[Rfam]
RNA sequence: CCGUGCAGCCGGGGAGUUAGCGGUGCCCUGUACCUGCAAUCCGCUACAGCAGGGGUGAUAUCCCGCCCAGGGUUCCUUCUUGUGGAGCAGCCCUUUAUAAGUGGCGUUGACGUCUGGGUCUUACGCAACAGGAAUCUAUGAACCGUGUCAGGUCAGGAAUGAAGCAGCACUAAGUAGAACCUCCUGUGUGCCGUGAGGGUGCCUGGGCCGAGUUAACUGUAAAGGUAACGUCUAUGAUGGGAAUUCAAAGCGGGAUGCACGG
Numbered sequence: 001c002c003g004u005g006c007a008g009c010c011g012g013g014g015a016g017u018u019a020g021c022g023g024u025g026c027c028c029u030g031u032a033c034c035u036g037c038a039a040u041c042c043g044c045u046a047c048a049g050c051a052g053g054g055g056u057g058a059u060a061u062c063c064c065g066c067c068c069a070g071g072g073u074u075c076c077u078u079c080u081u082g083u084g085g086a087g088c089a090g091c092c093c094u095u096u097a098u099a100a101g102u103g104g105c106g107u108u109g110a111c112g113u114c115u116g117g118g119u120c121u122u123a124c125g126c127a128a129c130a131g132g133a134a135u136c137u138a139u140g141a142a143c144c145g146u147g148u149c150a151g152g153u154c155a156g157g158a159a160u161g162a163a164g165c166a167g168c169a170c171u172a173a174g175u176a177g178a179a180c181c182u183c184c185u186g187u188g189u190g191c192c193g194u195g196a197g198g199g200u201g202c203c204u205g206g207g208c209c210g211a212g213u214u215a216a217c218u219g220u221a222a223a224g225g226u227a228a229c230g231u232c233u234a235u236g237a238u239g240g241g242a243a244u245u246c247a248a249a250g251c252g253g254g255a256u257g258c259a260c261g262g
Base pairs, nucleotide, nucleotide: 001262002261003260004259005258006257008056009055010054011029012028013027014026016024017023018022033053034052035051036050037049062254063253064252065251066250070246071245072244073243074242075241077240078239080237081236082235083234084233085232086231093224094223095222096221097220098219101217102216103214104213105212112208113207114206115205116204117203118202119201120197121196122195123194124193125192126188127187129186130185131184132183133182135178136177137176138175139174145170146169147168148167153162154161155160

A member of the RNA family "Bacterial large signal recognition particle RNA" from Diplocloster agilis, 262 nucleotides long. The literature on the family includes a 2009 paper in RNA Biol by Rosenblad et al., "Kinship in the SRP RNA family". Rfam classes the family as a non-coding RNA gene.